RNA sequence: UAGUAUCGGUGAAGAUGCCGAUUACCCGCAACGGGACGGAAAGACCCCGUGAACCUUUACUGCAGCUUAGCACUGGGACCGGGUGCUCGAUGUGUAGGAUAGUCAGGAGACAGCGAAGCAGUCACGCCAGUGAUUGUGGAGUCGACGUUGAAAUACUGACCUUCGCGCAUCUGGUUCCUAACGCGCAGGAAGCGCGGACACUGCUUGGUGGGUAGUUUGACUGGGGUGGUCGCCUCCAAAAGAGUAACGGAGGCUUCUAAAGGUGCGCUCAGGCCGAUUGGUAACCGGCCGUAGAGUGUAAUGGCACAAGCGCGCUUGACUGGGAGGCCGACAAGCCGAACAGGUAGGAAACUAGAGCAUAGUGAUCCGGUGGUUCCGUAUGGAAGGGCCAUCGCUCAAAGGAUAAAAGGUACUCCGGGGAUAACAGGCUGAUCCCUCCCAAGAGCUCAUAUCGACGGAGUGGUUUGGCACCUCGAUGUCGGCUCGUCACAUCCCGGGGCUGGAGAAGGUCCCAAGGGUUAGGCUGUUCGCCUAUUAAAGUGGCACGCGAGCUGGGUUCAGAACGUCGUGAGACAGUUCGGUCCCUAUCUGUUGUGGGCG
Numbered sequence: 001u002a003g004u005a006u007c008g009g010u011g012a013a014g015a016u017g018c019c020g021a022u023u024a025c026c027c028g029c030a031a032c033g034g035g036a037c038g039g040a041a042a043g044a045c046c047c048c049g050u051g052a053a054c055c056u057u058u059a060c061u062g063c064a065g066c067u068u069a070g071c072a073c074u075g076g077g078a079c080c081g082g083g084u085g086c087u088c089g090a091u092g093u094g095u096a097g098g099a100u101a102g103u104c105a106g107g108a109g110a111c112a113g114c115g116a117a118g119c120a121g122u123c124a125c126g127c128c129a130g131u132g133a134u135u136g137u138g139g140a141g142u143c144g145a146c147g148u149u150g151a152a153a154u155a156c157u158g159a160c161c162u163u164c165g166c167g168c169a170u171c172u173g174g175u176u177c178c179u180a181a182c183g184c185g186c187a188g189g190a191a192g193c194g195c196g197g198a199c200a201c202u203g204c205u206u207g208g209u210g211g212g213u214a215g216u217u218u219g220a221c222u223g224g225g226g227u228g229g230u231c232g233c234c235u236c237c238a239a240a241a242g243a244g245u246a247a248c249g250g251a252g253g254c255u256u257c258u259a260a261a262g263g264u265g266c267g268c269u270c271a272g273g274c275c276g277a278u279u280g281g282u283a284a285c286c287g288g289c290c291g292u293a294g295a296g297u298g299u300a301a302u303g304g305c306a307c308a309a310g311c312g313c314g315c316u317u318g319a320c321u322g323g324g325a326g327g328c329c330g331a332c333a334a335g336c337c338g339a340a341c342a343g344g345u346a347g348g349a350a351a352c353u354a355g356a357g358c359a360u361a362g363u364g365a366u367c368c369g370g371u372g373g374u375u376c377c378g379u380a381u382g383g384a385a386g387g388g389c390c391a392u393c394g395c396u397c398a399a400a401g402g403a404u405a406a407a408a409g410g411u412a413c414u415c416c417g418g419g420g421a422u423a424a425c426a427g428g429c430u431g432a433u434c435c436c437u438c439c440c441a442a443g444a445g446c447u448c449a450u451a452u453c454g455a456c457g458g459a460g461u462g463g464u465u466u467g468g469c470a471c472c473u474c475g476a477u478g479u480c481g482g483c484u485c486g487u488c489a490c491a492u493c494c495c496g497g498g499g500c501u502g503g504a505g506a507a508g509g510u511c512c513c514a515a516g517g518g519u520u521a522g523g524c525u526g527u528u529c530g531c532c533u534a535u536u537a538a539a540g541u542g543g544c545a546c547g548c549g550a551g552c553u554g555g556g557u558u559c560a561g562a563a564c565g566u567c568g569u570g571a572g573a574c575a576g577u578u579c580g581g582u583c584c585c586u587a588u589c590u591g592u593u594g595u596g597g598g599c600g
Base pairs, nucleotide, nucleotide: 005022006021007020008019009018025598026597027596028595029594030593031592032591034590035589036588038585039584046419047418048417049416051415052414053411054410055409056408057407059216060215061214062213066208067207069205070204071203072202075178076177077176078175079174080173081172082171083170084169085168086167088165089164090163092161102160103159104158105157106156109143110142111141118137119136120135121134122133123132124131125130182196183195184194185193186192219231220230221229222228232254233253234252235251236250237249255400257357258356263315264314265313266312267311268310269295270294272290273289274288275287276286296305297304320343321342322341326337327336328335345354346353347352368394369393370392371391372390373389374388376387377386428469429468430467432466433463434462436460437459438458439457443453444452480555481553482552483551484550485547486544487543488542489541490540493518494517496513497512498511499510500509501508520534521533522532523531524530561579562578563577564576565574566573567572
RNA: Bacterial large subunit ribosomal RNA, nucleotides 2043 to 2642